[Rfam]
RNA sequence: CAAUAUAAAUGGGAGCUCCUUUUAGUCCACUAACGAGGGCUGAGGAGCGGAUAGAGCUGCCAUCUCAUGCAUUUGGUUGUGCUUAGUAUUUUCCAAUACGUACGGACUAUGGAGACAGAAUCACAGCACUGCAUACAAGACAAGUAAAUGUUAAGUUCAGCUAACUGCAUGACAUGGGAGCAACUCCUUCCCGUUUACUUUGCCCGCGUAUUGGACUGAAGGGGGCUCCCUUGAUUAGCACA
Numbered sequence: 001c002a003a004u005a006u007a008a009a010u011g012g013g014a015g016c017u018c019c020u021u022u023u024a025g026u027c028c029a030c031u032a033a034c035g036a037g038g039g040c041u042g043a044g045g046a047g048c049g050g051a052u053a054g055a056g057c058u059g060c061c062a063u064c065u066c067a068u069g070c071a072u073u074u075g076g077u078u079g080u081g082c083u084u085a086g087u088a089u090u091u092u093c094c095a096a097u098a099c100g101u102a103c104g105g106a107c108u109a110u111g112g113a114g115a116c117a118g119a120a121u122c123a124c125a126g127c128a129c130u131g132c133a134u135a136c137a138a139g140a141c142a143a144g145u146a147a148a149u150g151u152u153a154a155g156u157u158c159a160g161c162u163a164a165c166u167g168c169a170u171g172a173c174a175u176g177g178g179a180g181c182a183a184c185u186c187c188u189u190c191c192c193g194u195u196u197a198c199u200u201u202g203c204c205c206g207c208g209u210a211u212u213g214g215a216c217u218g219a220a221g222g223g224g225g226c227u228c229c230c231u232u233g234a235u236u237a238g239c240a241c242a
Stems, first nucleotide, its partner, number of pairs: 013228008023218007057180002060177003066171004074163006
Source information: The record is a 242-nucleotide RNA sequence from Camellia sinensis, which matches "MIR159 microRNA precursor family" in Rfam. A reference for the family is Jones-Rhoades and Bartel (2004), "Computational identification of plant microRNAs and their targets, including a stress-induced miRNA", Mol Cell. The source organism's lineage runs through Eukaryota, Tracheophyta, eudicotyledons, Gunneridae and Camellia.